[Rfam]
RNA sequence: UAGGGGGACAGUAAAUGUUUGGAUGAACAGCUGGGACAUGAGAAGACUCUCACAAACCUGUUGCCGGCUGUCACUGGAAGCAAUGUAAUUUACGGUAUGG
Numbered sequence: 001u002a003g004g005g006g007g008a009c010a011g012u013a014a015a016u017g018u019u020u021g022g023a024u025g026a027a028c029a030g031c032u033g034g035g036a037c038a039u040g041a042g043a044a045g046a047c048u049c050u051c052a053c054a055a056a057c058c059u060g061u062u063g064c065c066g067g068c069u070g071u072c073a074c075u076g077g078a079a080g081c082a083a084u085g086u087a088a089u090u091u092a093c094g095g096u097a098u099g100g
Stems, first nucleotide, its partner, number of pairs: 003012001025032001033062002077098001079096001
The record is a 100-nucleotide RNA from Aminipila butyrica, which matches "Pyrrolysine insertion sequence mttB" in Rfam.
Taxonomically the source falls in Aminipila (Bacteria, Bacillati, Clostridia, Peptostreptococcales).
The family's consensus secondary structure was predicted with CMfinder.